[Rfam]
RNA sequence: UUCAUCGUUGUCAAUGAUGUAUUCUUGUUGGAACUGAAUCCAAAUGAUCUAACUCAGAUAUUCGUCACUACCACUGAGACAGCGAUGAA
Numbered sequence: 001u002u003c004a005u006c007g008u009u010g011u012c013a014a015u016g017a018u019g020u021a022u023u024c025u026u027g028u029u030g031g032a033a034c035u036g037a038a039u040c041c042a043a044a045u046g047a048u049c050u051a052a053c054u055c056a057g058a059u060a061u062u063c064g065u066c067a068c069u070a071c072c073a074c075u076g077a078g079a080c081a082g083c084g085a086u087g088a089a
Base pairs, nucleotide, nucleotide: 001089002088003087004086005085006084007083008082009081010080011079012078
RNA: Small nucleolar RNA SNORD70